RNA sequence: CCGCGCUAAGCGGGGAGAUGGCGAUGCCCUGUACCUGCGAUCGCCUAGCAGGGCCUAAUUCCCCGCCCGAGGCGCGAACCGGGUUCGGUUGAAACCGGUGCGGCCGGCGUUGAUGGCCUGGUCCCGGGCAAUGGGGCCCCGUGAACCGUGUCAGGACCGGAAGGUAGCAGCACUAAGCGGGUAACCUCAUGUGCUACGGGGCAGCCAGGCCGGAGUCGGCGGCCGGAAGUUCGCCGAACGCGGUCGUGUCGACGGCGGGGUGCGCGG
Numbered sequence: 001c002c003g004c005g006c007u008a009a010g011c012g013g014g015g016a017g018a019u020g021g022c023g024a025u026g027c028c029c030u031g032u033a034c035c036u037g038c039g040a041u042c043g044c045c046u047a048g049c050a051g052g053g054c055c056u057a058a059u060u061c062c063c064c065g066c067c068c069g070a071g072g073c074g075c076g077a078a079c080c081g082g083g084u085u086c087g088g089u090u091g092a093a094a095c096c097g098g099u100g101c102g103g104c105c106g107g108c109g110u111u112g113a114u115g116g117c118c119u120g121g122u123c124c125c126g127g128g129c130a131a132u133g134g135g136g137c138c139c140c141g142u143g144a145a146c147c148g149u150g151u152c153a154g155g156a157c158c159g160g161a162a163g164g165u166a167g168c169a170g171c172a173c174u175a176a177g178c179g180g181g182u183a184a185c186c187u188c189a190u191g192u193g194c195u196a197c198g199g200g201g202c203a204g205c206c207a208g209g210c211c212g213g214a215g216u217c218g219g220c221g222g223c224c225g226g227a228a229g230u231u232c233g234c235c236g237a238a239c240g241c242g243g244u245c246g247u248g249u250c251g252a253c254g255g256c257g258g259g260g261u262g263c264g265c266g267g
Base pairs, nucleotide, nucleotide: 001267002266003265004264005263006262008056010054011053012030013029014028015027017025019023034052035051036050037049038048061260062259063258064257065256066255067254071250072249073248074247075246078244079243080242081241083239084238085237086236087235091231092230095226096225097224098223099222103220104219106217107216108215114212115211116210117209118208119207120206121205122204123200124199125198126197128195129191130190132189133188134187135186136185138181139180140179141178142177148173149172150171151170156165157164158163
A member of the RNA family "Bacterial large signal recognition particle RNA" from Rubrobacter tropicus, 267 nucleotides long. It is annotated as a non-coding RNA gene. Its family is annotated with SRP-dependent cotranslational protein targeting to membrane, signal sequence recognition and signal recognition particle, plasma membrane targeting in the Gene Ontology. About the family: The signal recognition particle (SRP) is a universally conserved ribonucleoprotein involved in the co-translational targeting of proteins to membranes. It scores 170 bits against the family's covariance model.